[Rfam]
RNA: Potassium channel RNA editing signal
Organism: Betta splendens
RNA sequence: GUUGGUUACGGGGACAUGUACCCGGAGACGGUCGGUGGAAAACUGGUGGGCUCGAUGUGUGCCAUUGCAGGGGUGCUCACCAUUUCCCUGCCCGUGCCUGUCAUUGUGUCCAAC
Numbered sequence: 001g002u003u004g005g006u007u008a009c010g011g012g013g014a015c016a017u018g019u020a021c022c023c024g025g026a027g028a029c030g031g032u033c034g035g036u037g038g039a040a041a042a043c044u045g046g047u048g049g050g051c052u053c054g055a056u057g058u059g060u061g062c063c064a065u066u067g068c069a070g071g072g073g074u075g076c077u078c079a080c081c082a083u084u085u086c087c088c089u090g091c092c093c094g095u096g097c098c099u100g101u102c103a104u105u106g107u108g109u110c111c112a113a114c
Stems, first nucleotide, its partner, number of pairs: 001114002004111002007108005013102004018097004037077002040074001049063003